This 222-nucleotide RNA sequence from Aegilops tauschii belongs to the Rfam family "Plant small nucleolar RNA U3". The family has 24 seed sequences and 3,759 matches in Rfam 15.1. Rfam classes the family as a C/D-box small nucleolar RNA. The source organism's lineage runs through Eukaryota, Spermatophyta, Triticodae, Triticinae and Aegilops tauschii.
[Rfam]
RNA sequence: ACGGCCUUACUUGAACAGGAUUUGUUCUAUAGGCUCGUACCGCUGCAUCCUUUACCAAUAAGGAGGCAAGCACUUCAGUUUGGUUGAUGCAUUCUGACCUCUGGGCCAGAGCGUGAUUAACGGCUUGGAUUCGCCUGAUGGGUGCCAUCCAACGGCUGUAGAGGAUCGUUCCUGUUCCAGUUCACCCUGGUGCAGGGUGGCUCAGAGGUUGUUUGACAGACU
Numbered sequence: 001a002c003g004g005c006c007u008u009a010c011u012u013g014a015a016c017a018g019g020a021u022u023u024g025u026u027c028u029a030u031a032g033g034c035u036c037g038u039a040c041c042g043c044u045g046c047a048u049c050c051u052u053u054a055c056c057a058a059u060a061a062g063g064a065g066g067c068a069a070g071c072a073c074u075u076c077a078g079u080u081u082g083g084u085u086g087a088u089g090c091a092u093u094c095u096g097a098c099c100u101c102u103g104g105g106c107c108a109g110a111g112c113g114u115g116a117u118u119a120a121c122g123g124c125u126u127g128g129a130u131u132c133g134c135c136u137g138a139u140g141g142g143u144g145c146c147a148u149c150c151a152a153c154g155g156c157u158g159u160a161g162a163g164g165a166u167c168g169u170u171c172c173u174g175u176u177c178c179a180g181u182u183c184a185c186c187c188u189g190g191u192g193c194a195g196g197g198u199g200g201c202u203c204a205g206a207g208g209u210u211g212u213u214u215g216a217c218a219g220a221c222u
Base pairs, nucleotide, nucleotide: 001038002037003035005033006032007031013027014026015025016024017023018022044068045067046066048064049063050062051061052060078221079220080219081218082217097209098208099207100206101205102204103203104202105201106200107199108198110170111169112168113167120159121158122157123156124155125154126151127150128149129148130147132144133143134142135141172195173194174193175192177190178189179188180187